HDV ribozyme from F. prausnitzii: a 77-nucleotide RNA from Aplosporella prunicola.
RNA sequence: GGGGAUCAAAAUCCUACUCUACACCUCCUCGCGGUGGUCCCUGGGCAACAACCUUUAUGGUUGGCCAAGUAGAGAGG
Numbered sequence: 001g002g003g004g005a006u007c008a009a010a011a012u013c014c015u016a017c018u019c020u021a022c023a024c025c026u027c028c029u030c031g032c033g034g035u036g037g038u039c040c041c042u043g044g045g046c047a048a049c050a051a052c053c054u055u056u057a058u059g060g061u062u063g064g065c066c067a068a069g070u071a072g073a074g075a076g077g
Stems, first nucleotide, its partner, number of pairs: 001042007023035003049063005
The literature on the family includes a 2009 paper in Science by Webb et al., "Widespread occurrence of self-cleaving ribozymes".